[Rfam]
RNA sequence: CGUAAAAAUGUAUGCACACUAAGUCGCUUUGGAUAAAAGCGUCUGCUAAAUGGCAUAUU
Numbered sequence: 001c002g003u004a005a006a007a008a009u010g011u012a013u014g015c016a017c018a019c020u021a022a023g024u025c026g027c028u029u030u031g032g033a034u035a036a037a038a039g040c041g042u043c044u045g046c047u048a049a050a051u052g053g054c055a056u057a058u059u
Stems, first nucleotide, its partner, number of pairs: 013048001014046001020045002025041006
The record is a 59-nucleotide RNA sequence from Coregonus sp. 'balchen', which matches "UnaL2 LINE 3' element" in Rfam. Lineage of the source: Eukaryota > Opisthokonta > Metazoa > Chordata > Coregonus. The literature on the family includes a 2004 paper in RNA by Baba et al., "Solution structure of an RNA stem-loop derived from the 3' conserved region of eel LINE UnaL2". It is annotated as a cis-regulatory element. The eel long interspersed element (LINE) UnaL2 and its partner short interspersed element (SINE) share a conserved 3' tail containing a stem-loop that is critical for their retrotransposition. Presumably, the first step of retrotransposition is the recognition of their 3' tails by UnaL2-encoded reverse transcriptase. The solution structure of a 17-nucleotide RNA derived from the 3' tail of UnaL2 was determined by NMR.